Description: bantam microRNA precursor family: an 80-nucleotide sequence from Magallana gigas. Pairs were carried over by alignment from the consensus structure, which was predicted with RNAalifold.
[Rfam]
RNA sequence: UCUAACACACAAAACUGGUUUUCAUAAUGGUUUGAGAUUGUGUUAGAUUCUGAGAUCAUUGUGAAAACUGAUUUUGUAAC
Dot-bracket structure: ........((((((.((((((((((..((((((...................))))))..)))))))))).))))))...
Gene Ontology terms of the family: RISC complex and miRNA-mediated post-transcriptional gene silencing.